[Rfam]
A member of the RNA family "Bacterial RNase P class A" from Pedobacter steynii, 375 nucleotides long.
About the family: Ribonuclease P (RNase P) is a ubiquitous endoribonuclease, found in archaea, bacteria and eukarya as well as chloroplasts and mitochondria.
RNA sequence: AAUGCAAGCCGUUCUAUCGCUGCGAUUUAUCGGAGAGGAAAGUCCGGGCAACACAGAGCAUCUCGCUUCCUAACGGGAAGAGGCUUAGGAUUGAAAACCUGAGUUAUGGAAAGUGCCGCAGAAAAUAUACCGCCGAUGGCUUUUAAGCACAGGUAAGGUUGAAAACGUGAGGUAAGAGCUCACGAGUAUUCCGGGCAACCGGAUUGCUGGUAAACCCCGGGAGUUGAAAGACCAAAUAGGCUAACGCAUGUAGGGCUGCUCGUCCGAUGUUAGCGGGUAGGUCGUUAGAGAUAAAUGGUAACAUUUAUAGUGGAUUAAUGAUAGAAACGCUGAGCAAUCAGUGUACAGAACCCGGCUUACAGGCUUGCAUUUUUU
Numbered sequence: 001a002a003u004g005c006a007a008g009c010c011g012u013u014c015u016a017u018c019g020c021u022g023c024g025a026u027u028u029a030u031c032g033g034a035g036a037g038g039a040a041a042g043u044c045c046g047g048g049c050a051a052c053a054c055a056g057a058g059c060a061u062c063u064c065g066c067u068u069c070c071u072a073a074c075g076g077g078a079a080g081a082g083g084c085u086u087a088g089g090a091u092u093g094a095a096a097a098c099c100u101g102a103g104u105u106a107u108g109g110a111a112a113g114u115g116c117c118g119c120a121g122a123a124a125a126u127a128u129a130c131c132g133c134c135g136a137u138g139g140c141u142u143u144u145a146a147g148c149a150c151a152g153g154u155a156a157g158g159u160u161g162a163a164a165a166c167g168u169g170a171g172g173u174a175a176g177a178g179c180u181c182a183c184g185a186g187u188a189u190u191c192c193g194g195g196c197a198a199c200c201g202g203a204u205u206g207c208u209g210g211u212a213a214a215c216c217c218c219g220g221g222a223g224u225u226g227a228a229a230g231a232c233c234a235a236a237u238a239g240g241c242u243a244a245c246g247c248a249u250g251u252a253g254g255g256c257u258g259c260u261c262g263u264c265c266g267a268u269g270u271u272a273g274c275g276g277g278u279a280g281g282u283c284g285u286u287a288g289a290g291a292u293a294a295a296u297g298g299u300a301a302c303a304u305u306u307a308u309a310g311u312g313g314a315u316u317a318a319u320g321a322u323a324g325a326a327a328c329g330c331u332g333a334g335c336a337a338u339c340a341g342u343g344u345a346c347a348g349a350a351c352c353c354g355g356c357u358u359a360c361a362g363g364c365u366u367g368c369a370u371u372u373u374u375u
Stems, first nucleotide, its partner, number of pairs: 001371010011360001012326007020035002023032003040358003044355005049226004056261004061222005066080005081107001082105008108217002113215002115211003130158002132154003137149001139148003166184006186207003190203005230283004240274006253265004291308007

The source organism's lineage runs through Bacteria, Pseudomonadati, Bacteroidota, Sphingobacteriaceae and Pedobacter.